[Rfam]
RNA sequence: AUCUGACACGCCCCCACGGUAUCCAGUCUGGGUCCGACAUUUGGGCGUGGUUCGAUGAC
Numbered sequence: 001a002u003c004u005g006a007c008a009c010g011c012c013c014c015c016a017c018g019g020u021a022u023c024c025a026g027u028c029u030g031g032g033u034c035c036g037a038c039a040u041u042u043g044g045g046c047g048u049g050g051u052u053c054g055a056u057g058a059c
Stems, first nucleotide, its partner, number of pairs: 007049007016041001018035002021033005